[Rfam]
The family of this 82-nucleotide RNA sequence from Ameiurus melas is "mir-130 microRNA precursor family". Lineage of the source: Eukaryota > Actinopterygii > Ostariophysi > Ictaluridae > Ameiurus. The family has 9 seed sequences and 2,580 matches in Rfam 15.1. Pairs were carried over by alignment from the consensus structure, which was predicted with PFOLD. The match comes from Rfam's covariance-model search (41 bits).

RNA sequence: ACCCAGCCAAUGCCCUUUUAACAUUGCACUGCUCUCAGAACCACGGCACCAGUAGUACAAUAUAAAAGGGGCACUGGAUGGA
Number, nucleotide and partner (000 for none) at each position: 001a000002c000003c000004c000005a079006g000007c077008c076009a075010a000011u000012g072013c071014c070015c069016u068017u067018u066019u065020a000021a000022c000023a061024u060025u059026g058027c000028a056029c055030u054031g000032c000033u000034c000035u000036c000037a000038g000039a000040a000041c000042c000043a000044c000045g000046g000047c000048a000049c000050c000051a000052g000053u000054a030055g029056u028057a000058c026059a025060a024061u023062a000063u000064a000065a019066a018067a017068g016069g015070g014071g013072c012073a000074c000075u009076g008077g007078a000079u005080g000081g000082a000